[Rfam]
RNA: Lysine riboswitch aptamer
Organism: Volucribacter psittacicida
RNA sequence: CGCAUAUGUAGAGGCGCAAAUGUUAUAAGUAUUUUUUCUGAGCGGAUAGCGAUGAAGGAAAAGGAAAGGAAUAUUUGCCGAAAUCAAUCAAAAGUCAUUUUGAUUGGUUGGGGGCGUUAUUGAAAGGUACGUCACUGCCAUAGUAUGUUUAUGUUCACUAUGGAGCGCUACUGUUUAG
Numbered sequence: 001c002g003c004a005u006a007u008g009u010a011g012a013g014g015c016g017c018a019a020a021u022g023u024u025a026u027a028a029g030u031a032u033u034u035u036u037u038c039u040g041a042g043c044g045g046a047u048a049g050c051g052a053u054g055a056a057g058g059a060a061a062a063g064g065a066a067a068g069g070a071a072u073a074u075u076u077g078c079c080g081a082a083a084u085c086a087a088u089c090a091a092a093a094g095u096c097a098u099u100u101u102g103a104u105u106g107g108u109u110g111g112g113g114g115c116g117u118u119a120u121u122g123a124a125a126g127g128u129a130c131g132u133c134a135c136u137g138c139c140a141u142a143g144u145a146u147g148u149u150u151a152u153g154u155u156c157a158c159u160a161u162g163g164a165g166c167g168c169u170a171c172u173g174u175u176u177a178g
Base pairs, nucleotide, nucleotide: 008171009170010169011168016078017077018076019075020074021073022072023071024070032063033062034061035060036059037058038057039056082109083108084107085106086105087104088103089102090101091100092099093098110136111135113133114132115131116130117129120126138163139162140161141160142159143158144157